[Rfam]
RNA sequence: GUGAGCAGGAGACCAGGGCACGGCAAGGGGAGCUGCAGGGCCACUGGAGGGGCCCCAGCAUCUGAGUCCUGUCCUCUUGCAG
Numbered sequence: 001g002u003g004a005g006c007a008g009g010a011g012a013c014c015a016g017g018g019c020a021c022g023g024c025a026a027g028g029g030g031a032g033c034u035g036c037a038g039g040g041c042c043a044c045u046g047g048a049g050g051g052g053c054c055c056c057a058g059c060a061u062c063u064g065a066g067u068c069c070u071g072u073c074c075u076c077u078u079g080c081a082g
Stems, first nucleotide, its partner, number of pairs: 005080007014071006028063003032059004038055005

Overview:
This 82-nucleotide RNA from Piliocolobus tephrosceles belongs to the Rfam family "mir-1233 microRNA precursor family". Rfam links the family to the GO terms miRNA-mediated post-transcriptional gene silencing and RISC complex. The base pairs follow the family's consensus structure, which was predicted with RNAalifold.